[Rfam]
RNA sequence: ACAAGUUCAAGGCCGUAGCAGAAGCGUUCAUGGCAUGGUGUGUCAGAUUCCAACAAGUCUGCCAAUUCUGCU
Dot-bracket structure: .......[...[[[..((((((((.(.......).)]]]]...((((((......))))))....)))))))

The record is a 72-nucleotide sequence from Alligator mississippiensis, which matches "Mammalian CPEB3 ribozyme" in Rfam.
Pairs were carried over by alignment from the consensus structure, which is taken from published work.
Gene Ontology term of the family: RNA nuclease activity.
The mammalian CPEB3 ribozyme is a self cleaving RNA located in the second intron of the CPEB3 gene which belongs to a family of genes regulating messenger RNA polyadenylation. This ribozyme is highly conserved and found only in mammals. The CPEB3 ribozyme is structurally and biochemically related to the human hepatitis delta virus (HDV) ribozyme and the HDV ribozyme is proposed to have arisen from the human transcriptome.